The record is a 112-nucleotide sequence from Phtheirospermum japonicum, which matches "Small nucleolar RNA Z107/R87" in Rfam.
For this family Rfam cites "Identification of 66 box C/D snoRNAs in Arabidopsis thaliana: extensive gene duplications generated multiple isoforms predicting new ribosomal RNA 2'-O-methylation sites" (Barneche et al., J Mol Biol, 2001).
[Rfam]
RNA sequence: AAUCGCAGUGACGACUCCGAAAAUUCAAGCUCAACAGACCGGAUUGCAGGUUCAUCUCUCUGAUAAGAGAUCGUUUACUUGCGUGUCGAUUAUCCCGCUGAACUGAGCGAUU
Dot-bracket structure: ((((((....................................................................................................))))))

About this RNA
The base pairs follow the family's consensus structure, which was predicted with RNAfold. NCBI's taxonomy places the organism under Eukaryota, Magnoliopsida, Gunneridae, asterids, Phtheirospermum.